Record summary: The family of this 98-nucleotide RNA from Branchiostoma floridae is "mir-2060 microRNA precursor family". The organism belongs to Branchiostoma, within Eukaryota. Pairs were carried over by alignment from the consensus structure, which was predicted with RNAalifold. Its family is annotated with RISC complex and miRNA-mediated post-transcriptional gene silencing in the Gene Ontology. It scores 59 bits against the family's covariance model.
[Rfam]
RNA sequence: GUUUAUCUGUGUGUGUGGAUAGUGUUAAGUACCAAGGACAGGCAUGUUUACCUGCAUGUGUGGGUAGUUUUCAGCACCAAGGAUAGGCAUAAUAUUUA
Numbered sequence: 001g002u003u004u005a006u007c008u009g010u011g012u013g014u015g016u017g018g019a020u021a022g023u024g025u026u027a028a029g030u031a032c033c034a035a036g037g038a039c040a041g042g043c044a045u046g047u048u049u050a051c052c053u054g055c056a057u058g059u060g061u062g063g064g065u066a067g068u069u070u071u072c073a074g075c076a077c078c079a080a081g082g083a084u085a086g087g088c089a090u091a092a093u094a095u096u097u098a
Stems, first nucleotide, its partner, number of pairs: 004089001006087005020079001022077005028071002031068002034065001036059001038057001039054004044049001